[Rfam]
RNA sequence: GCACCCCUAGCUCAAUUGGAUAGAGCAUCGGUCUACGGAACCGAAGGUUAGUGGUUCGAAUCCACUGGGGUGUA
Numbered sequence: 001g002c003a004c005c006c007c008u009a010g011c012u013c014a015a016u017u018g019g020a021u022a023g024a025g026c027a028u029c030g031g032u033c034u035a036c037g038g039a040a041c042c043g044a045a046g047g048u049u050a051g052u053g054g055u056u057c058g059a060a061u062c063c064a065c066u067g068g069g070g071u072g073u074a
Stems, first nucleotide, its partner, number of pairs: 001073007010026004028044005050066005